The family of this 78-nucleotide sequence from Sphingomonas lacunae is "terC RNA". It scores 52 bits against the family's covariance model.

[Rfam]
RNA sequence: CGAGCGGGCCGGGCCCCUCUGGCGUGUGUGACAGCAUCCCCCCCCUCUUUGUCACAUGCGUGAUGUCGGACCGUAUCG
Numbered sequence: 001c002g003a004g005c006g007g008g009c010c011g012g013g014c015c016c017c018u019c020u021g022g023c024g025u026g027u028g029u030g031a032c033a034g035c036a037u038c039c040c041c042c043c044c045c046u047c048u049u050u051g052u053c054a055c056a057u058g059c060g061u062g063a064u065g066u067c068g069g070a071c072c073g074u075a076u077c078g
Stems, first nucleotide, its partner, number of pairs: 006072002009069004022061013